[Rfam]
The record is a 79-nucleotide RNA sequence from Blautia sp. An46, which matches "ZMP/ZTP riboswitch aptamer (pfl RNA motif)" in Rfam. Gene Ontology terms of the family: one-carbon metabolic process and regulation of purine nucleotide biosynthetic process.
RNA sequence: AAGUGCUUAUAUGACUGACGGAAGUGGAAAUGACCACGGGGAGUAUAAGCGAGAGAAGCCGACCGUCUGGGCAGAAUGC
Numbered sequence: 001a002a003g004u005g006c007u008u009a010u011a012u013g014a015c016u017g018a019c020g021g022a023a024g025u026g027g028a029a030a031u032g033a034c035c036a037c038g039g040g041g042a043g044u045a046u047a048a049g050c051g052a053g054a055g056a057a058g059c060c061g062a063c064c065g066u067c068u069g070g071g072c073a074g075a076a077u078g079c
Base pairs, nucleotide, nucleotide: 004051005050006049007048008047009046010045011044012043015040016039017067018066019065020064021063024037025036026035027034058072059071060070